[Rfam]
RNA sequence: CGAUUGAAAAGGCAAACCUGCCGAAAGACAGGGACGCAAAGCCAGGAGCCUAAAGCAGCAUCCAAUUCACUGCCAUGGCCGUUCGGUUGCCACA
Numbered sequence: 001c002g003a004u005u006g007a008a009a010a011g012g013c014a015a016a017c018c019u020g021c022c023g024a025a026a027g028a029c030a031g032g033g034a035c036g037c038a039a040a041g042c043c044a045g046g047a048g049c050c051u052a053a054a055g056c057a058g059c060a061u062c063c064a065a066u067u068c069a070c071u072g073c074c075a076u077g078g079c080c081g082u083u084c085g086g087u088u089g090c091c092a093c094a
Stems, first nucleotide, its partner, number of pairs: 012037002017032004022027001040088004045084003048079003055073004
This 94-nucleotide sequence from Sinanaerobacter chloroacetimidivorans belongs to the Rfam family "c-di-GMP-I riboswitch aptamer". Lineage of the source: Bacteria > Clostridia > Peptostreptococcales > Anaerovoracaceae > Sinanaerobacter. The literature on the family includes a 2007 paper in Nucleic Acids Res by Weinberg et al., "Identification of 22 candidate structured RNAs in bacteria using the CMfinder comparative genomics pipeline".